[Rfam]
RNA: Plant signal recognition particle RNA
RNA sequence: GCCGAGCUAAGUAACUCUAGCUUGUGACCCGAGUGGGGGCAGUGAAGUGGCAGAAUGAUGGUUUGAUCCUCUGGGCAGGGUCCACGCAUGCGUAUUCCAGGUUCGCCCGUUCAAAGUUAUGAGUUUGAUUGAACCUUGAGUCUUGGGCGAAAGCUCGGGCCUCGUGGUUCUCAGAGGCGAGGGCACUGCGUGAGGCUGGUUUAACAGAGCAGCGAAAACCUCCUACUCAUAGCAGUUGAAGGAUAACGGGUCGGUGCUUCUUGGACCCGGAUUGUCAUCUUUUUCUUUUUGUCAUCA
Numbered sequence: 001g002c003c004g005a006g007c008u009a010a011g012u013a014a015c016u017c018u019a020g021c022u023u024g025u026g027a028c029c030c031g032a033g034u035g036g037g038g039g040c041a042g043u044g045a046a047g048u049g050g051c052a053g054a055a056u057g058a059u060g061g062u063u064u065g066a067u068c069c070u071c072u073g074g075g076c077a078g079g080g081u082c083c084a085c086g087c088a089u090g091c092g093u094a095u096u097c098c099a100g101g102u103u104c105g106c107c108c109g110u111u112c113a114a115a116g117u118u119a120u121g122a123g124u125u126u127g128a129u130u131g132a133a134c135c136u137u138g139a140g141u142c143u144u145g146g147g148c149g150a151a152a153g154c155u156c157g158g159g160c161c162u163c164g165u166g167g168u169u170c171u172c173a174g175a176g177g178c179g180a181g182g183g184c185a186c187u188g189c190g191u192g193a194g195g196c197u198g199g200u201u202u203a204a205c206a207g208a209g210c211a212g213c214g215a216a217a218a219c220c221u222c223c224u225a226c227u228c229a230u231a232g233c234a235g236u237u238g239a240a241g242g243a244u245a246a247c248g249g250g251u252c253g254g255u256g257c258u259u260c261u262u263g264g265a266c267c268c269g270g271a272u273u274g275u276c277a278u279c280u281u282u283u284u285c286u287u288u289u290u291g292u293c294a295u296c297a
Stems, first nucleotide, its partner, number of pairs: 001040003004023006011016001028037003056297002058292003061288001065284002074276004078268007086260001088259001090257001098254001100252006107242002110240005116233009131170005137164004142159007171176001177224001179222004187216001189214003196207003